The family of this 177-nucleotide RNA from Streptomyces radiopugnans is "c-di-AMP riboswitch aptamer (ydaO/yuaA leader)". Lineage of the source: Bacteria > Actinomycetota > Actinomycetes > Kitasatosporales > Streptomyces. The pairing is the family consensus, mapped onto this sequence.

[Rfam]
RNA sequence: GAGAGGCAGCAGCUGACCAUGGCAGGAGCGGGGAAACCACAUACGCGCCGUGCCGCGCCUUCGGCGGCCCGGCUUGGGGUGAAGCCGAUUCCCGACGCCCUCUGGCGCGAAGGGAACGGCCGGGCAACUCCAGCCCGAAUCCGACAGCUAACCUCGCAGGCGUGGGAGAGGAAGCAC
Numbered sequence: 001g002a003g004a005g006g007c008a009g010c011a012g013c014u015g016a017c018c019a020u021g022g023c024a025g026g027a028g029c030g031g032g033g034a035a036a037c038c039a040c041a042u043a044c045g046c047g048c049c050g051u052g053c054c055g056c057g058c059c060u061u062c063g064g065c066g067g068c069c070c071g072g073c074u075u076g077g078g079g080u081g082a083a084g085c086c087g088a089u090u091c092c093c094g095a096c097g098c099c100c101u102c103u104g105g106c107g108c109g110a111a112g113g114g115a116a117c118g119g120c121c122g123g124g125c126a127a128c129u130c131c132a133g134c135c136c137g138a139a140u141c142c143g144a145c146a147g148c149u150a151a152c153c154u155c156g157c158a159g160g161c162g163u164g165g166g167a168g169a170g171g172a173a174g175c176a177c
Base pairs, nucleotide, nucleotide: 006161007160013026014025028157029156030155031154032153033152038076039075077142078141079140085119086118087117122136123135124134125133